Rfam assigns this 433-nucleotide part of an RNA from Plasmodium yoelii to the family "Eukaryotic large subunit ribosomal RNA".
The source organism's lineage runs through Eukaryota, Sar, Haemosporida, Vinckeia and Plasmodium yoelii.

[Rfam]
RNA sequence: UUGUAUUAUGCUGGGAGGGCAUAUCCGCCGAAUUUAAGCAUAUAAUUAAGCGGAAGAAAAGAAAAUAACAAUGAUUCCUUUAGUAACGGCGAGUGAACAAGGAAAAGCUCAAAAGGAAAAUCCGCUUUGCGGUGAAAACUGCAGUGUGGAAUUGUCUGGUUGGGGUUUAGUCCUCUCUAUGUUUUUGUUGGGAGCGAAAUGAGUAGGAAUACUAUUCCUUAGAGGGUGAAAGGCCCGUAGUUCCCUACAAUUAUAGAUGGACUAUUCUCUGUAGAGUCGUGUUCUUUGAGAUUGGAGCACAAAUGUGUGUGAUACAUUUCACAUAAAGCUAAAUAUUUGUAGGAGACCGAUAGCAAACAAGUACCGUGAGGGAAAGAUGAAAUAGUACUCAGGAAUGAGGUUUAAAUAGUACCUGAAAUCGUUAAGAUGGAAC
Number, nucleotide and partner (000 for none) at each position: 001u000002u000003g000004u000005a000006u000007u000008a000009u000010g000011c000012u000013g000014g000015g000016a000017g000018g000019g000020c000021a000022u000023a000024u055025c053026c052027g051028c050029c000030g000031a000032a000033u000034u000035u042036a041037a000038g000039c000040a000041u036042a035043u000044a000045a000046u000047u000048a000049a000050g028051c027052g026053g025054a000055a024056g000057a000058a000059a000060a000061g000062a000063a000064a000065a072066u071067a000068a000069c000070a000071a066072u065073g000074a000075u000076u103077c102078c101079u100080u099081u000082a000083g000084u000085a000086a094087c093088g000089g000090c000091g000092a000093g087094u086095g000096a000097a000098c000099a080100a079101g078102g077103a076104a000105a000106a330107g329108c328109u327110c000111a000112a000113a000114a157115g156116g155117a000118a153119a152120a000121u150122c149123c148124g147125c146126u000127u144128u143129g142130c141131g140132g000133u000134g000135a000136a000137a000138a000139c000140u131141g130142c129143a128144g127145u000146g125147u124148g123149g122150a121151a000152u119153u118154g000155u116156c115157u114158g000159g000160u000161u000162g270163g269164g267165g266166u000167u264168u000169a263170g262171u261172c260173c000174u000175c000176u000177c000178u000179a000180u000181g254182u253183u000184u000185u250186u249187g248188u000189u000190g246191g245192g244193a000194g242195c000196g000197a000198a000199a215200u000201g000202a213203g212204u211205a000206g000207g000208a000209a000210u000211a204212c203213u202214a000215u199216u000217c000218c222219u000220u000221a000222g218223a000224g000225g235226g234227u000228g000229a000230a000231a000232g000233g000234c226235c225236c000237g000238u000239a000240g000241u000242u194243c000244c192245c191246u190247a000248c187249a186250a185251u000252u000253a182254u181255a000256g000257a000258u000259g000260g172261a171262c170263u169264a167265u000266u165267c164268u000269c163270u162271g000272u000273a000274g000275a000276g000277u000278c000279g300280u299281g298282u297283u296284c295285u294286u000287u000288g000289a000290g000291a000292u000293u000294g285295g284296a283297g282298c281299a280300c279301a000302a000303a000304u000305g000306u000307g324308u323309g322310u321311g320312a000313u000314a000315c000316a000317u000318u000319u000320c311321a310322c309323a308324u307325a000326a000327a109328g108329c107330u106331a000332a000333a000334u000335a000336u000337u000338u000339g000340u000341a000342g000343g000344a000345g000346a000347c000348c000349g000350a000351u000352a000353g000354c000355a000356a000357a000358c000359a000360a000361g000362u000363a000364c371365c370366g000367u000368g000369a000370g365371g364372g000373a000374a000375a000376g000377a000378u000379g000380a000381a000382a000383u000384a000385g000386u000387a000388c399389u398390c397391a396392g000393g000394a000395a000396u391397g390398a389399g388400g000401u000402u000403u000404a000405a000406a000407u000408a000409g000410u000411a000412c000413c000414u000415g000416a000417a000418a000419u000420c000421g000422u000423u000424a000425a000426g000427a000428u000429g000430g000431a000432a000433c000
Rfam links the family to the GO terms structural constituent of ribosome and ribosome.